M-box riboswitch aptamer (ykoK leader): a 172-nucleotide sequence from Listeria fleischmannii. Taxonomically the source falls in Listeria fleischmannii (Bacteria, Bacillota, Bacilli, Listeriaceae). Rfam describes the family as follows. M-box riboswitch, also know as ykoK leader is described as a metaloregulatory RNA that sense divalent metals and function as a genetic control element of genes related to divalent metal transport in bacteria. It was first reported upstream of the B.subtilis ykoK gene and genes with related functions in other bacteria.
[Rfam]
RNA sequence: GAAUAAAUCUGUAAGGUGAGGCUCCUAUACAAACAUAGGCCACUGCCCAAAAACGUCCAAAGACGCCAAUGGGUUGAACAGGAAUUGUCGGAUUAAGGCUUUUCUUAACGUGGCUAAGGGAAUAUUUCCCUUUACGUUGUGUAGUGCUAAAACUUUUGCGAGGGACACGCUU
Number, nucleotide and partner (000 for none) at each position: 001g000002a000003a000004u000005a000006a000007a000008u165009c164010u163011g159012u158013a000014a000015g154016g153017u152018g000019a000020g148021g147022c146023u000024c000025c144026u143027a142028u141029a140030c139031a138032a137033a000034c000035a000036u000037a000038g000039g114040c113041c112042a111043c110044u000045g074046c073047c072048c071049a070050a000051a000052a000053a000054c065055g064056u063057c062058c000059a000060a000061a000062g057063a056064c055065g054066c000067c000068a000069a000070u049071g048072g047073g046074u045075u000076g000077a000078a000079c000080a000081g105082g104083a103084a102085u000086u000087g099088u098089c097090g000091g000092a000093u000094u000095a000096a000097g089098g088099c087100u000101u000102u084103u083104c082105u081106u000107a000108a000109c000110g043111u042112g041113g040114c039115u000116a132117a131118g130119g129120g128121a000122a000123u000124a000125u000126u000127u000128c120129c119130c118131u117132u116133u000134a000135c000136g000137u032138u031139g030140u029141g028142u027143a026144g025145u000146g022147c021148u020149a000150a000151a000152a017153c016154u015155u000156u000157u000158g012159c011160g000161a000162g000163g010164g009165a008166c000167a000168c000169g000170c000171u000172u000